[Rfam]
RNA sequence: UGGAAAUACAGACGAAAGUACUGUUAUACAACAGUAAGCGAUCAAAUUGAUUAAGCGUAUUGUAAAUACGCCCGCCUGAUUGGGGUAAACCUUCUUACAAAAAGAAGGUCUAUUUUUAUGCUU
Numbered sequence: 001u002g003g004a005a006a007u008a009c010a011g012a013c014g015a016a017a018g019u020a021c022u023g024u025u026a027u028a029c030a031a032c033a034g035u036a037a038g039c040g041a042u043c044a045a046a047u048u049g050a051u052u053a054a055g056c057g058u059a060u061u062g063u064a065a066a067u068a069c070g071c072c073c074g075c076c077u078g079a080u081u082g083g084g085g086u087a088a089a090c091c092u093u094c095u096u097a098c099a100a101a102a103a104g105a106a107g108g109u110c111u112a113u114u115u116u117u118a119u120g121c122u123u
Base pairs, nucleotide, nucleotide: 007026008024009023010022011021012019013018029082030081031080032078033077038075039074040073041051042050043049055072056070057069058068059067060066085113086112087111089109090108091107092106093105094104095103096102